Shown here is a 156-nucleotide RNA from Lentibacillus kapialis, a member of the family "Group II catalytic intron D1-D4-4". On this family, see Bonen and Vogel, Trends Genet 2001: "The ins and outs of group II introns". From the family's description: Group II introns are found in rRNA, tRNA and mRNA of organelles in fungi, plants and protists, and also in mRNA in bacteria. Rfam links the family to the GO term Group II intron splicing.
RNA sequence: UAGUGAGUUGAAACGUACUCACACCGAAAGUUUCCUAUUCAUUCGGUUAGCCUGGAAUCAUGCGUUACUGGGUAACUGGUAGCGUAGAAGCAGAUUCGACAUGACGUUCUCGUUCCCAGUCAAGGAGCGUAGGCAAACCUGCAGGCUGUAACGAGA
Numbered sequence: 001u002a003g004u005g006a007g008u009u010g011a012a013a014c015g016u017a018c019u020c021a022c023a024c025c026g027a028a029a030g031u032u033u034c035c036u037a038u039u040c041a042u043u044c045g046g047u048u049a050g051c052c053u054g055g056a057a058u059c060a061u062g063c064g065u066u067a068c069u070g071g072g073u074a075a076c077u078g079g080u081a082g083c084g085u086a087g088a089a090g091c092a093g094a095u096u097c098g099a100c101a102u103g104a105c106g107u108u109c110u111c112g113u114u115c116c117c118a119g120u121c122a123a124g125g126a127g128c129g130u131a132g133g134c135a136a137a138c139c140u141g142c143a144g145g146c147u148g149u150a151a152c153g154a155g156a
Base pairs, nucleotide, nucleotide: 023047024046025045026044027043055097056096057095058094059093061086062085063084064083065082069078071076104130105129106128107127108126109125133149134148135147